[Rfam]
RNA sequence: AUUACCGGACUCGCAAAACCCAACCGUUUGUUCGGAAGGUGAGCCUGUCUGGGUCGGGGCGCUCUGUAAACCGCCCAUCCUCAUCCCGCGAAAUCGCUUCGCGUGGAGUGCUUACGACGUAGGCUGAGGGAAUUACAAAAGCCACGGGUCACCUGACCCGUGGUUGUUUACCUGCCGUUUGGAAUGUGGUUG
Numbered sequence: 001a002u003u004a005c006c007g008g009a010c011u012c013g014c015a016a017a018a019c020c021c022a023a024c025c026g027u028u029u030g031u032u033c034g035g036a037a038g039g040u041g042a043g044c045c046u047g048u049c050u051g052g053g054u055c056g057g058g059g060c061g062c063u064c065u066g067u068a069a070a071c072c073g074c075c076c077a078u079c080c081u082c083a084u085c086c087c088g089c090g091a092a093a094u095c096g097c098u099u100c101g102c103g104u105g106g107a108g109u110g111c112u113u114a115c116g117a118c119g120u121a122g123g124c125u126g127a128g129g130g131a132a133u134u135a136c137a138a139a140a141g142c143c144a145c146g147g148g149u150c151a152c153c154u155g156a157c158c159c160g161u162g163g164u165u166g167u168u169u170a171c172c173u174g175c176c177g178u179u180u181g182g183a184a185u186g187u188g189g190u191u192g
Base pairs, nucleotide, nucleotide: 005052006051007050008049009048010047013044014043020039021038024035025034053079057076058075059074060073061072065070087192088191091187093185094184097181100177101176102174106173108171109170110169112126115123140165141164142163143162144161145160146159147158148157149156
RNA: Sense overlapping transcript RNA 2652 (sot)